[Rfam]
The record is a 224-nucleotide sequence from Coffea arabica, which matches "Plant small nucleolar RNA U3" in Rfam. By type it is a C/D-box small nucleolar RNA. For this family Rfam cites "The uRNA database" (Zwieb, Nucleic Acids Res, 1997).
RNA sequence: ACGACCUUACUUGAACAGGAUCUGUUCUAUAGGCUCGUACCUCUGUGUCCUUGAGUUCUAAGGAGACAGGAAACCAAGUCUGGCGGAUGAAAUAUGACCGCUUGACCAGAACGUGAUUAACAGCUCUUGUUGCUCGGCUUCCGAGCUCCCAGGGCAGUAGAGGAUCGUUCCCAGCCCUUCGCUCUGGCAUUGGUUGGGGUGGUCUUGCGGUUGUCUGACAGACU
Numbered sequence: 001a002c003g004a005c006c007u008u009a010c011u012u013g014a015a016c017a018g019g020a021u022c023u024g025u026u027c028u029a030u031a032g033g034c035u036c037g038u039a040c041c042u043c044u045g046u047g048u049c050c051u052u053g054a055g056u057u058c059u060a061a062g063g064a065g066a067c068a069g070g071a072a073a074c075c076a077a078g079u080c081u082g083g084c085g086g087a088u089g090a091a092a093u094a095u096g097a098c099c100g101c102u103u104g105a106c107c108a109g110a111a112c113g114u115g116a117u118u119a120a121c122a123g124c125u126c127u128u129g130u131u132g133c134u135c136g137g138c139u140u141c142c143g144a145g146c147u148c149c150c151a152g153g154g155c156a157g158u159a160g161a162g163g164a165u166c167g168u169u170c171c172c173a174g175c176c177c178u179u180c181g182c183u184c185u186g187g188c189a190u191u192g193g194u195u196g197g198g199g200u201g202g203u204c205u206u207g208c209g210g211u212u213g214u215c216u217g218a219c220a221g222a223c224u
Base pairs, nucleotide, nucleotide: 001038002037003035005033006032007031013027014026015025016024017023018022043069044068045067046066048064049063050062051061052060053059078223079222080221081220082219097211098210099209100208101207104204105203106202107201108200110169111168112167113166120158121157123155124154125153126152127151129149132146133145134144135143136142171197172196173195174194175193176192179189

Lineage of the source: Eukaryota > Streptophyta > Euphyllophyta > Magnoliopsida > Coffea. Rfam's curators write: Small nucleolar RNAs (snoRNAs) are involved in the processing and modification of rRNA in the nucleolus. There are two main classes of snoRNAs: the box C/D class, and the box H/ACA class. U3 snoRNA is a member of the box C/D class. Indeed, the box C/D element is a subset of the six short sequence elements found in all U3 snoRNAs, namely boxes A, A', B, C, C', and D. The U3 snoRNA secondary structure is characterised by a small 5' domain (with boxes A and A'), and a larger 3' domain (with boxes B, C, C', and D), the two domains being linked by a single-stranded hinge. Boxes B and C form the B/C motif, which appears to be exclusive to U3 snoRNAs, and boxes C' and D form the C'/D motif. The latter is functionally similar to the C/D motifs found in other snoRNAs. The 5' domain and the hinge region act as a pre-rRNA-binding domain. The 3' domain has conserved protein-binding sites. Both the box B/C and box C'/D motifs are sufficient for nuclear retention of U3 snoRNA. The box C'/D motif is also necessary for nucleolar localisation, stability and hyper-methylation of U3 snoRNA. Both box B/C and C'/D motifs are involved in specific protein interactions and are necessary for the rRNA processing functions of U3 snoRNA.